[Rfam]
RNA sequence: CCGGCGGCUAGGGUAGGCUACCCAAAAGCAGAUUCCUCUAAACUGCCUGCCGCCGGUUCCAAUUUCAGAG
Number, nucleotide and partner (000 for none) at each position: 001c056002c055003g054004g053005c052006g051007g050008c049009u000010a000011g023012g022013g021014u020015a000016g000017g000018c000019u000020a014021c013022c012023c011024a000025a000026a000027a000028g046029c045030a044031g043032a000033u000034u000035c070036c000037u068038c000039u000040a000041a000042a000043c031044u030045g029046c028047c000048u000049g008050c007051c006052g005053c004054c003055g002056g001057u000058u000059c000060c000061a000062a000063u000064u000065u000066c000067a000068g037069a000070g035
RNA: int-alpA RNA